[Rfam]
RNA: Small nucleolar RNA Z155
RNA sequence: UAUUGAAAUGAUGAUAUCGUUUUCCGAAUUUUUCAGUGUCGACUUUAAAAAACAGACUACAAUUAUCUGAUCUAUG
Numbered sequence: 001u002a003u004u005g006a007a008a009u010g011a012u013g014a015u016a017u018c019g020u021u022u023u024c025c026g027a028a029u030u031u032u033u034c035a036g037u038g039u040c041g042a043c044u045u046u047a048a049a050a051a052a053c054a055g056a057c058u059a060c061a062a063u064u065a066u067c068u069g070a071u072c073u074a075u076g
Stems, first nucleotide, its partner, number of pairs: 001076003005072002